[Rfam]
RNA: Small nucleolar RNA SNORA69
Nucleotides: 130
Stems, first nucleotide, its partner, number of pairs: 003056006018043009069125004073120006082109004088103001090101001092099002
Number, partner (000 for none) and nucleotide at each position: 001000a002000a003056a004055g005054c006053a007052g008051g009000u010000u011000g012000c013000a014000a015000u016000u017000a018043c019042a020041g021040g022039g023038u024037u025036u026035c027000a028000u029000u030000c031000u032000g033000u034000g035026g036025g037024a038023g039022c040021u041020c042019u043018g044000u045000c046000a047000u048000a049000u050000g051008c052007c053006u054005g055004c056003u057000g058000a059000g060000a061000g062000c063000a064000a065000u066000u067000c068000u069125g070124c071123u072122g073120c074119c075118u076117a077116g078115g079000a080000u081000u082109u083108g084107a085106u086000g087000g088103c089000u090101c091000c092099u093098c094000c095000a096000c097000u098093g099092g100000a101090g102000u103088g104000a105000a106085a107084u108083c109082a110000g111000u112000u113000u114000c115078c116077u117076u118075g119074g120073g121000a122072c123071a124070g125069u126000c127000a128000c129000a130000a